[Rfam]
RNA sequence: AUUGCUCACUCUCCCUCAAGGGCUUCUGAAUUUGCCUGUGUUUAAGGGCUUAAACUGAAGCGCUGGAGGAGAGAGUGGAUAA
Numbered sequence: 001a002u003u004g005c006u007c008a009c010u011c012u013c014c015c016u017c018a019a020g021g022g023c024u025u026c027u028g029a030a031u032u033u034g035c036c037u038g039u040g041u042u043u044a045a046g047g048g049c050u051u052a053a054a055c056u057g058a059a060g061c062g063c064u065g066g067a068g069g070a071g072a073g074a075g076u077g078g079a080u081a082a
Stems, first nucleotide, its partner, number of pairs: 006078008014069002017066001019064002022061005